The record is a 120-nucleotide RNA from Pseudomonas sp. MRSN 12121, which matches "Y RNA-like" in Rfam. The base pairs follow the family's consensus structure, which is taken from published work. The source organism's lineage runs through Bacteria, Pseudomonadota, Pseudomonadales, Pseudomonadaceae and Pseudomonas. About the family: In Deinococcus radiodurans Rsr is tethered via Y RNA to the exoribonuclease PNPase and channels single-stranded RNA into the PNPase cavity. It scores 72 bits against the family's covariance model. By type it is a small RNA.

RNA sequence: CCGGCGAAUGCCGGUGGAACUACAGGACAGCGUGGUCGCGGGUUCGAUUCCCGCCAACCGCAAGGGGCUAGCUCAGUGGUAGAGCGCGCUGCAUGUUCCGCCUUCACUGGUCGCCGUUUA
Numbered sequence: 001c002c003g004g005c006g007a008a009u010g011c012c013g014g015u016g017g018a019a020c021u022a023c024a025g026g027a028c029a030g031c032g033u034g035g036u037c038g039c040g041g042g043u044u045c046g047a048u049u050c051c052c053g054c055c056a057a058c059c060g061c062a063a064g065g066g067g068c069u070a071g072c073u074c075a076g077u078g079g080u081a082g083a084g085c086g087c088g089c090u091g092c093a094u095g096u097u098c099c100g101c102c103u104u105c106a107c108u109g110g111u112c113g114c115c116g117u118u119u120a
Stems, first nucleotide, its partner, number of pairs: 002116006013102007023091001031088003038054005045079001071085004